[Rfam]
RNA sequence: UCCUCGCUCCAAGAAUCGCAACGAAGCACACGCACAGAGUGCCCUCGGGCAUCUCGCUCAGCUUUGGGAGAAAGUCCCCGGACAUCGGUCCUCUGGAUCGCACUUUCAGCAACGAACCGCCAUAGAAGCGCGGCCUCGUACCACUACGGCGCUUCUCACUCUCUCUUCCGUUUGUACUCUUUGCCUGGGCUUUCUCGACGCUACGGGUGGAGGAGCUGGUGCCUGGGCGAUGAUAUGAGCCCGCUGGUCACCUUGCCCGUCGCCGACGGAUCGACGAGGGCUCAGAGGAGGGGGGAGAUGCCGGGUUGUGCUGGGUAUCGAGGGUUUUCUCGUCCAGUUUAUGGUCAUGCGAUUGCUUCUGCGCGUCUCGGUAAUACGGGACGGCGGCAGGAGUAACUCAAUGGGGCUUAUUCUUGACGCGAGG
Number, nucleotide and partner (000 for none) at each position: 001u000002c424003c423004u422005c421006g420007c419008u417009c416010c000011a414012a000013g000014a354015a353016u352017c351018g350019c349020a000021a000022c066023g065024a064025a063026g062027c061028a000029c000030a000031c000032g000033c000034a000035c000036a000037g053038a052039g000040u051041g050042c049043c048044c000045u000046c000047g000048g043049g042050c041051a040052u038053c037054u000055c000056g000057c000058u000059c000060a000061g027062c026063u025064u024065u023066g022067g000068g000069a000070g000071a000072a409073a408074g407075u000076c406077c405078c404079c403080g000081g000082a000083c000084a000085u000086c000087g000088g000089u000090c000091c000092u000093c000094u000095g000096g000097a000098u000099c000100g000101c000102a000103c000104u000105u000106u000107c000108a000109g000110c000111a000112a000113c000114g000115a000116a000117c000118c000119g000120c000121c000122a000123u000124a000125g000126a000127a000128g000129c000130g000131c000132g000133g000134c000135c000136u000137c000138g000139u000140a000141c000142c000143a000144c000145u000146a000147c000148g000149g000150c000151g000152c000153u000154u000155c000156u000157c000158a000159c000160u000161c000162u000163c000164u000165c000166u000167u000168c000169c000170g000171u000172u000173u000174g000175u000176a000177c000178u000179c000180u000181u000182u000183g000184c000185c000186u000187g000188g000189g000190c000191u000192u000193u000194c000195u000196c000197g000198a000199c000200g000201c000202u000203a000204c000205g000206g000207g000208u000209g000210g000211a000212g000213g000214a000215g000216c000217u000218g000219g000220u000221g000222c000223c000224u000225g000226g000227g000228c000229g000230a000231u000232g000233a000234u000235a000236u000237g000238a000239g000240c000241c000242c000243g000244c000245u000246g327247g326248u000249c000250a000251c323252c322253u321254u320255g319256c000257c000258c000259g000260u000261c315262g000263c313264c000265g000266a000267c000268g000269g000270a000271u000272c308273g307274a306275c305276g000277a000278g000279g000280g000281c000282u000283c000284a000285g000286a000287g000288g000289a000290g000291g000292g000293g000294g000295g000296a000297g000298a000299u000300g000301c000302c000303g000304g000305g275306u274307u273308g272309u000310g000311c000312u000313g263314g000315g261316u000317a000318u000319c255320g254321a253322g252323g251324g000325u000326u247327u246328u000329c000330u000331c000332g000333u000334c000335c000336a000337g000338u000339u000340u000341a000342u000343g000344g000345u000346c000347a000348u000349g019350c018351g017352a016353u015354u014355g000356c393357u392358u391359c390360u389361g388362c000363g000364c000365g000366u000367c000368u000369c000370g000371g000372u000373a000374a000375u000376a000377c000378g000379g000380g000381a000382c000383g000384g000385c000386g000387g000388c361389a360390g359391g358392a357393g356394u000395a000396a000397c000398u000399c000400a000401a000402u000403g079404g078405g077406g076407c074408u073409u072410a000411u000412u000413c000414u011415u000416g009417a008418c000419g007420c006421g005422a004423g003424g002
The family of this 424-nucleotide sequence from Ascochyta rabiei is "RNase MRP". It is annotated as a ribozyme. The family's consensus secondary structure is taken from published work. Rfam's curators write: RNase MRP is an enzymatically active ribonucleoprotein with two distinct roles in eukaryotes.